This 85-nucleotide sequence from Durio zibethinus belongs to the Rfam family "Plastid-psbM 3UTR RNA". Taxonomically the source falls in Durio (Eukaryota, Spermatophyta, Magnoliopsida, eudicotyledons). By type it is a cis-regulatory element. The family's consensus secondary structure was predicted with LocARNA. Rfam describes the family as follows. Plastid psbM is a non-coding RNA (ncRNA) recognised in plastids. It was found in the three prime untranslated region (3UTR) of psbM gene, its 3UTR location suggests a role in transcript maturation.
RNA sequence: AACUCAAUAGUGUGGUAGAAAAAAAUAUAUGAAUUUUUCUACCAUACUAUCUAUAUCUAUUAUUUUAAUGUAUAAAGAUACAGGC
Numbered sequence: 001a002a003c004u005c006a007a008u009a010g011u012g013u014g015g016u017a018g019a020a021a022a023a024a025a026u027a028u029a030u031g032a033a034u035u036u037u038u039c040u041a042c043c044a045u046a047c048u049a050u051c052u053a054u055a056u057c058u059a060u061u062a063u064u065u066u067a068a069u070g071u072a073u074a075a076a077g078a079u080a081c082a083g084g085c
Stems, first nucleotide, its partner, number of pairs: 007050017